Picornavirus internal ribosome entry site (IRES): a 228-nucleotide RNA from Crohivirus alermus.
On this family, see Liu et al., Virology 1999: "Structural and functional analysis of the 5' untranslated region of coxsackievirus B3 RNA: In vivo translational and infectivity studies of full-length mutants".
Lineage of the source: Viruses > Orthornavirae > Pisuviricota > Picornavirales > Crohivirus alermus.
Rfam describes the family as follows. This family represents the Picornavirus internal ribosome entry site (IRES). IRES elements allow cap and end-independent translation of mRNA in the host cell.
[Rfam]
RNA sequence: GCUGGAUGUUUUUAGUAAUGGUGUCGAAGGUCCUAUUGAGCUACAGGAGUUUCCUCCGCCCUGGUGAAUGCGGCUAAUCUUAUCCCUGAGCCUAAGGUUGCGAUCCAGCAACUUGAUGGUCGUAAUGCGUAAGUUGGGGGCGGAACCGACUACUUUCCAGAAGGCGUGUUUCUUUGUUUUGUCUGUUACUAUGGUGCAUGAUAUAGAUAUUGAAUAUUUGAUCUUUUU
Numbered sequence: 001g002c003u004g005g006a007u008g009u010u011u012u013u014a015g016u017a018a019u020g021g022u023g024u025c026g027a028a029g030g031u032c033c034u035a036u037u038g039a040g041c042u043a044c045a046g047g048a049g050u051u052u053c054c055u056c057c058g059c060c061c062u063g064g065u066g067a068a069u070g071c072g073g074c075u076a077a078u079c080u081u082a083u084c085c086c087u088g089a090g091c092c093u094a095a096g097g098u099u100g101c102g103a104u105c106c107a108g109c110a111a112c113u114u115g116a117u118g119g120u121c122g123u124a125a126u127g128c129g130u131a132a133g134u135u136g137g138g139g140g141c142g143g144a145a146c147c148g149a150c151u152a153c154u155u156u157c158c159a160g161a162a163g164g165c166g167u168g169u170u171u172c173u174u175u176g177u178u179u180u181g182u183c184u185g186u187u188a189c190u191a192u193g194g195u196g197c198a199u200g201a202u203a204u205a206g207a208u209a210u211u212g213a214a215u216a217u218u219u220g221a222u223c224u225u226u227u228u
Base pairs, nucleotide, nucleotide: 001007016023017022032185039184040183042181043180057166058165059164061160062159063158071148072147073146078144079143080142083140084139085138086137087136088135089134091119092118095114096113097112098111099110100109101108121127122126187203188202190200191199192198193197
Dot-bracket structure: (.....)........((....))........(......((.((.............(((.(((.......(((....(((..(((((((.((..(((((((......)))))))...)).((...))......))))))).))).))).........)))...))).............)).))).((.((((...)))).)).........................